[Rfam]
RNA sequence: AAGCGUUGAAGUAAGGUGUUGUGCCAGGAGGCAGUGCCUUACCAGCUUUAUAAGGGUUUAGCAUUUACCACAAUCUGGCUAGGGAGCAAAAGCUCUCAAAAGAAAAUGCUGGGA
Numbered sequence: 001a002a003g004c005g006u007u008g009a010a011g012u013a014a015g016g017u018g019u020u021g022u023g024c025c026a027g028g029a030g031g032c033a034g035u036g037c038c039u040u041a042c043c044a045g046c047u048u049u050a051u052a053a054g055g056g057u058u059u060a061g062c063a064u065u066u067a068c069c070a071c072a073a074u075c076u077g078g079c080u081a082g083g084g085a086g087c088a089a090a091a092g093c094u095c096u097c098a099a100a101a102g103a104a105a106a107u108g109c110u111g112g113g114a
Stems, first nucleotide, its partner, number of pairs: 001048004011042012024078004061109003082097006
This 114-nucleotide RNA sequence belongs to the Rfam family "drum RNA". Rfam describes the family as follows. Firmicutes, Bacteroidetes (1 example), Proteobacteria (2 examples), Spirochaetes (2 examples).